Source information:
The record is a 36-nucleotide RNA sequence from Allotamlana fucoidanivorans, which matches "abiF RNA" in Rfam. The match comes from Rfam's covariance-model search (42 bits). The family's RNA type in Rfam is small RNA. The family has 126 seed sequences and 282 matches in Rfam 15.1. NCBI's taxonomy places the organism under Bacteria, Pseudomonadati, Flavobacteriia, Flavobacteriaceae, Allotamlana. Actinobacteria, Bacteroidetes, Clostridia, Proteobacteria, one Clostridia phage.
RNA sequence: CCUUCCAUGCCUCUUUACAAUGCACACUCGGAAGGU
Numbered sequence: 001c002c003u004u005c006c007a008u009g010c011c012u013c014u015u016u017a018c019a020a021u022g023c024a025c026a027c028u029c030g031g032a033a034g035g036u
Stems, first nucleotide, its partner, number of pairs: 001035006008024003